[Rfam]
Rfam assigns this 187-nucleotide RNA sequence from Muribaculaceae bacterium Isolate-002 to the family "Bacteroidales-1 6S-Bacteroidales RNA suggested". On this family, see Ryan et al., Nat Commun 2020: "A high-resolution transcriptome map identifies small RNA regulation of metabolism in the gut microbe Bacteroides thetaiotaomicron". Rfam's curators write: Bacteroidales-1 was first reported in a comparative genomics-based approach of genome and metagenome sequences from Weinberg et al. 2010 In a high-resolution transcriptome map study of Bacteroides thetaiotaomicron, Ryan et al. 2020 report this sRNA as 6S RNA homologue of Bacteroides, in the study they obtain evidence of small product RNAs (pRNAs) related to 6S function.
RNA sequence: UACCACAUCAAAGUAGAUUGGGAAACUCUUCAAAUUAUUAUGAAAUGCCGAGACAAGCUUAGUCGUCUGAUGGCGGGCCCCAAUCCCUGAAAAGGGAUGCUUUAUGCCAGGCGGAUUACAAAGGACGGCGAGCACUCAAAUCCUGUCUAUUCGGAGUUUCAUCGCAUCCUUUGGUGUGGAAUUUAUA
Numbered sequence: 001u002a003c004c005a006c007a008u009c010a011a012a013g014u015a016g017a018u019u020g021g022g023a024a025a026c027u028c029u030u031c032a033a034a035u036u037a038u039u040a041u042g043a044a045a046u047g048c049c050g051a052g053a054c055a056a057g058c059u060u061a062g063u064c065g066u067c068u069g070a071u072g073g074c075g076g077g078c079c080c081c082a083a084u085c086c087c088u089g090a091a092a093a094g095g096g097a098u099g100c101u102u103u104a105u106g107c108c109a110g111g112c113g114g115a116u117u118a119c120a121a122a123g124g125a126c127g128g129c130g131a132g133c134a135c136u137c138a139a140a141u142c143c144u145g146u147c148u149a150u151u152c153g154g155a156g157u158u159u160c161a162u163c164g165c166a167u168c169c170u171u172u173g174g175u176g177u178g179g180a181a182u183u184u185a186u187a
Base pairs, nucleotide, nucleotide: 057133058132059131062129063128064127065126066125067124068123071120072119078114079113081111085096086095087094099107100106